Shown here is a 112-nucleotide RNA from Ziziphus jujuba, a member of the family "MIR477 microRNA precursor family". On this family, see Lu et al., Plant Cell 2005: "Novel and mechanical stress-responsive MicroRNAs in Populus trichocarpa that are absent from Arabidopsis". Rfam 15.1 lists 63 matches to the family in 31 species. It scores 72 bits against the family's covariance model.
RNA sequence: GAAGGCUCCAAAUUCCCUCAAAGGCUUGCGAUAUUUCCCUAUGAUUUGAAUAUAUUGAUAACAUUCAGUAUAUAUGGGAAUGUUGGAAGUCUGCGAGGGAAUUUGAAGCCUU
Numbered sequence: 001g002a003a004g005g006c007u008c009c010a011a012a013u014u015c016c017c018u019c020a021a022a023g024g025c026u027u028g029c030g031a032u033a034u035u036u037c038c039c040u041a042u043g044a045u046u047u048g049a050a051u052a053u054a055u056u057g058a059u060a061a062c063a064u065u066c067a068g069u070a071u072a073u074a075u076g077g078g079a080a081u082g083u084u085g086g087a088a089g090u091c092u093g094c095g096a097g098g099g100a101a102u103u104u105g106a107a108g109c110c111u112u
Stems, first nucleotide, its partner, number of pairs: 003111004009105011022092006029085010